RNA: Manganese Mn2+ riboswitch aptamer (yybP-ykoY)
RNA sequence: CCGCGCCGUCUUUGGGGAGUAGCCGUUCUACCGCCGUGGUGGAAGCUUACGUCAACAUACUUGGUCAACCUGGCCAUGGCAUAAGCAACGAAGUCGCCCGACUUCGACUGGCAAGACCAUAGACGCAUCCGACCGGCAAGGGGCCGCGGCGGAAUGCGUCUAUGCGUUUGCUGCCGGCCCC
Numbered sequence: 001c002c003g004c005g006c007c008g009u010c011u012u013u014g015g016g017g018a019g020u021a022g023c024c025g026u027u028c029u030a031c032c033g034c035c036g037u038g039g040u041g042g043a044a045g046c047u048u049a050c051g052u053c054a055a056c057a058u059a060c061u062u063g064g065u066c067a068a069c070c071u072g073g074c075c076a077u078g079g080c081a082u083a084a085g086c087a088a089c090g091a092a093g094u095c096g097c098c099c100g101a102c103u104u105c106g107a108c109u110g111g112c113a114a115g116a117c118c119a120u121a122g123a124c125g126c127a128u129c130c131g132a133c134c135g136g137c138a139a140g141g142g143g144c145c146g147c148g149g150c151g152g153a154a155u156g157c158g159u160c161u162a163u164g165c166g167u168u169u170g171c172u173g174c175c176g177g178c179c180c181c
Stems, first nucleotide, its partner, number of pairs: 026043003045086005051080004062076005093181001